[Rfam]
RNA sequence: CUGCUUUGAGGACAAACAGAAUAAAGGCUUCAUAUUU
Number, nucleotide and partner (000 for none) at each position: 001c019002u018003g000004c000005u016006u015007u014008g000009a000010g000011g000012a000013c000014a007015a006016a005017c000018a002019g001020a000021a000022u000023a000024a000025a000026g000027g000028c000029u000030u000031c000032a000033u000034a000035u000036u000037u000
RNA: Renin stability regulatory element (REN-SRE)
Organism: Loxodonta africana